[Rfam]
RNA sequence: AAAAAUAGAAUAAUAUUCACUUAUAUAAAUUCAGCAAUAUGGGUUGAGUGUUUCUACCAGGCUACCGUAAAUAGCUACAGGACUAUAAGUGUCUACUAACAAAUU
Numbered sequence: 001a002a003a004a005a006u007a008g009a010a011u012a013a014u015a016u017u018c019a020c021u022u023a024u025a026u027a028a029a030u031u032c033a034g035c036a037a038u039a040u041g042g043g044u045u046g047a048g049u050g051u052u053u054c055u056a057c058c059a060g061g062c063u064a065c066c067g068u069a070a071a072u073a074g075c076u077a078c079a080g081g082a083c084u085a086u087a088a089g090u091g092u093c094u095a096c097u098a099a100c101a102a103a104u105u
Base pairs, nucleotide, nucleotide: 018091019090020089021088022087023086024085025084029049030048031047032046033045034044035043058081060076061075062074063073064072
RNA: Purine riboswitch aptamer
Organism: Clostridium oryzae